[Rfam]
RNA sequence: ACAGCGACGACUCCUACGACUUAGAGACCUGUUUACACAAGGAGGGUACCCUCCCUCAACCAACAGGUGGGAAAUUCGGUGAAACACAGUGGAAUCAUUCCUUCCAGCCUGGGCUCGCUUCCUUCGGGAAGCUAGGCUCAGGUCUUUCCGUGAGGACAGCCUAGCCGGGGAACCGGUCUGCCUGGACGUUGUUAUCAGAAAUUCACACGGGUAACCGUGAUGGGAAAGCAACGAGUGUUUUAUUUGACGGGCUUCUGUUUACACAGUGGUCCAGUCUGUUGAGUGCAAUCGUAGGACAUGCCCUAGGGCUUGAACCCGAUACCGAUUACCGUCCUUGU
Numbered sequence: 001a002c003a004g005c006g007a008c009g010a011c012u013c014c015u016a017c018g019a020c021u022u023a024g025a026g027a028c029c030u031g032u033u034u035a036c037a038c039a040a041g042g043a044g045g046g047u048a049c050c051c052u053c054c055c056u057c058a059a060c061c062a063a064c065a066g067g068u069g070g071g072a073a074a075u076u077c078g079g080u081g082a083a084a085c086a087c088a089g090u091g092g093a094a095u096c097a098u099u100c101c102u103u104c105c106a107g108c109c110u111g112g113g114c115u116c117g118c119u120u121c122c123u124u125c126g127g128g129a130a131g132c133u134a135g136g137c138u139c140a141g142g143u144c145u146u147u148c149c150g151u152g153a154g155g156a157c158a159g160c161c162u163a164g165c166c167g168g169g170g171a172a173c174c175g176g177u178c179u180g181c182c183u184g185g186a187c188g189u190u191g192u193u194a195u196c197a198g199a200a201a202u203u204c205a206c207a208c209g210g211g212u213a214a215c216c217g218u219g220a221u222g223g224g225a226a227a228g229c230a231a232c233g234a235g236u237g238u239u240u241u242a243u244u245u246g247a248c249g250g251g252c253u254u255c256u257g258u259u260u261a262c263a264c265a266g267u268g269g270u271c272c273a274g275u276c277u278g279u280u281g282a283g284u285g286c287a288a289u290c291g292u293a294g295g296a297c298a299u300g301c302c303c304u305a306g307g308g309c310u311u312g313a314a315c316c317c318g319a320u321a322c323c324g325a326u327u328a329c330c331g332u333c334c335u336u337g338u
Base pairs, nucleotide, nucleotide: 001338002337003336004335007332008331009330012296013295014294015293016292017291018290027068028067029066030065031064042057043056044055045054046053077324078323079322080321081320085237086236087235145158147156148155149154164177165176166175167174168173187233188232189231190230191229192228193227206219207218208217297312298311300309301308302307

This 338-nucleotide RNA sequence from Naumovozyma castellii belongs to the Rfam family "Nuclear RNase P". By type it is a ribozyme. The match comes from Rfam's covariance-model search (92 bits). The source organism's lineage runs through Eukaryota, Fungi, Dikarya, Saccharomycotina and Naumovozyma. Rfam 15.1 lists 3,848 matches to the family in 1,862 species. Pairs were carried over by alignment from the consensus structure, which is taken from published work. Ribonuclease P (RNase P) is a ubiquitous endoribonuclease, found in archaea, bacteria and eukarya as well as chloroplasts and mitochondria.